RNA sequence: UCAGCCGCUGAUAACAGGGCUGGCCUUGCUGGAGGCACCGUCUUCGGCGCUUCCGUACCCCAUGUUGCUUCAAGGAGGAUAUGGCUAUGGCAA
Numbered sequence: 001u002c003a004g005c006c007g008c009u010g011a012u013a014a015c016a017g018g019g020c021u022g023g024c025c026u027u028g029c030u031g032g033a034g035g036c037a038c039c040g041u042c043u044u045c046g047g048c049g050c051u052u053c054c055g056u057a058c059c060c061c062a063u064g065u066u067g068c069u070u071c072a073a074g075g076a077g078g079a080u081a082u083g084g085c086u087a088u089g090g091c092a093a
Stems, first nucleotide, its partner, number of pairs: 001023006008017002032053005038047003054089004060084007068077003